[Rfam]
RNA sequence: UCCAAUAUAGCAUCCUUCGUUACAAUUUUUACACUGAAUGAUAUAUAAAAAAUGUAACGAAGGAUGCUAUAUUGGA
Numbered sequence: 001u002c003c004a005a006u007a008u009a010g011c012a013u014c015c016u017u018c019g020u021u022a023c024a025a026u027u028u029u030u031a032c033a034c035u036g037a038a039u040g041a042u043a044u045a046u047a048a049a050a051a052a053u054g055u056a057a058c059g060a061a062g063g064a065u066g067c068u069a070u071a072u073u074g075g076a
Stems, first nucleotide, its partner, number of pairs: 007070018027050005
Rfam assigns this 76-nucleotide RNA sequence from Microcaecilia unicolor to the family "mir-1 microRNA precursor family". Rfam links the family to the GO terms RISC complex and miRNA-mediated post-transcriptional gene silencing. Rfam's curators write: This family represents the microRNA (miRNA) mir-1 family. miRNAs are transcribed as ~70nt precursors (modelled here) and subsequently processed by the Dicer enzyme to give a ~22nt product. In this case the mature sequence comes from the 3' arm of the precursor. The extents of the hairpin precursors are not generally known and are estimated based on hairpin prediction. The products are thought to have regulatory roles through complementarity to mRNA. The involvement of Dicer in miRNA processing suggests a relationship with the phenomenon of RNA interference. miRNAs are numbered based on the sequence of the mature RNA. This family also contains the mir-206 from human, which appears to be related to mir-1.